RNA sequence: AGGUGAGGGGUGUGUCAAGGACUGUCUAACCUGAGAAUGGUGAAACGUGAAGGUCAAUCUCAGGUCUGUCAGCCCAUGAGACGCUUCCUCCAG
Numbered sequence: 001a002g003g004u005g006a007g008g009g010g011u012g013u014g015u016c017a018a019g020g021a022c023u024g025u026c027u028a029a030c031c032u033g034a035g036a037a038u039g040g041u042g043a044a045a046c047g048u049g050a051a052g053g054u055c056a057a058u059c060u061c062a063g064g065u066c067u068g069u070c071a072g073c074c075c076a077u078g079a080g081a082c083g084c085u086u087c088c089u090c091c092a093g
Stems, first nucleotide, its partner, number of pairs: 005090003008086006015079002019075002022072003026068001029065008038056002
RNA: mir-1388 microRNA precursor family